The record is a 112-nucleotide RNA sequence from Quercus lobata, which matches "Small nucleolar RNA U19" in Rfam. The family's RNA type in Rfam is H/ACA-box small nucleolar RNA. A search with the family's covariance model found it, with a score of 56 bits. Rfam links the family to the GO terms nucleolus and RNA processing.
[Rfam]
RNA sequence: UAUUGGCUUAGUUAGGAGGCAAAGAUUAAUGGAUUAUUAUUAGUCUUCUUAAGUCUUUUGAGAGGACUUUUGCUUCUUUGUCGAUUGUCCUCCAAGCAGUCUUAGGACAUAA
Numbered sequence: 001u002a003u004u005g006g007c008u009u010a011g012u013u014a015g016g017a018g019g020c021a022a023a024g025a026u027u028a029a030u031g032g033a034u035u036a037u038u039a040u041u042a043g044u045c046u047u048c049u050u051a052a053g054u055c056u057u058u059u060g061a062g063a064g065g066a067c068u069u070u071u072g073c074u075u076c077u078u079u080g081u082c083g084a085u086u087g088u089c090c091u092c093c094a095a096g097c098a099g100u101c102u103u104a105g106g107a108c109a110u111a112a
Stems, first nucleotide, its partner, number of pairs: 004021002007018003032045005048106006054099001057096004062092006070084001